[Rfam]
Background: Rfam assigns this 100-nucleotide sequence from Treponema denticola to the family "TD-2 RNA". The organism belongs to Treponema denticola, within Bacteria.
RNA sequence: ACCGCCAUGGACGGCAGUGGUUCCAAACUUCCAGGAGUUUUAGACGCAAGUCUAAAACUCUAAGAUGAAAAAUGUACAGGACGUACAUUCUUCAACCGGC
Numbered sequence: 001a002c003c004g005c006c007a008u009g010g011a012c013g014g015c016a017g018u019g020g021u022u023c024c025a026a027a028c029u030u031c032c033a034g035g036a037g038u039u040u041u042a043g044a045c046g047c048a049a050g051u052c053u054a055a056a057a058c059u060c061u062a063a064g065a066u067g068a069a070a071a072a073u074g075u076a077c078a079g080g081a082c083g084u085a086c087a088u089u090c091u092u093c094a095a096c097c098g099g100c
Stems, first nucleotide, its partner, number of pairs: 001018002004015003034061011064096001066094004071089007
Record summary: Rfam's curators put it in the seed alignment. It is annotated as a small RNA. The base pairs follow the family's consensus structure, which is taken from published work. The family is grouped with related families in Rfam's "TD (Treponema denticola) motifs".